[Rfam]
RNA sequence: ACUCGUCACUAGGGGCGCUUUUAUAAGCUGAGAUGUACCCUUGACCUGAUCUAUAUAAUGAUAGCGUAGGAAAGUGUCUUAUUUUUAAG
Number, nucleotide and partner (000 for none) at each position: 001a000002c000003u000004c000005g000006u000007c076008a075009c074010u073011a041012g040013g039014g038015g000016c035017g028018c027019u026020u025021u000022u000023a000024u000025a020026a019027g018028c017029u000030g000031a000032g000033a000034u000035g016036u000037a000038c014039c013040c012041u011042u000043g000044a000045c070046c069047u068048g067049a000050u000051c064052u063053a062054u061055a000056u000057a000058a000059u000060g000061a054062u053063a052064g051065c000066g000067u048068a047069g046070g045071a000072a000073a010074g009075u008076g007077u000078c000079u000080u000081a000082u000083u000084u000085u000086u000087a000088a000089g000
This 89-nucleotide RNA from Helcococcus kunzii belongs to the Rfam family "TPP riboswitch aptamer (THI element)". From the family's description: Vitamin B(1) in its active form thiamin pyrophosphate (TPP) is an essential coenzyme that is synthesised by coupling of pyrimidine and thiazole moieties in bacteria. Taxonomically the source falls in Helcococcus kunzii (Bacteria, Tissierellia, Peptoniphilaceae, Helcococcus).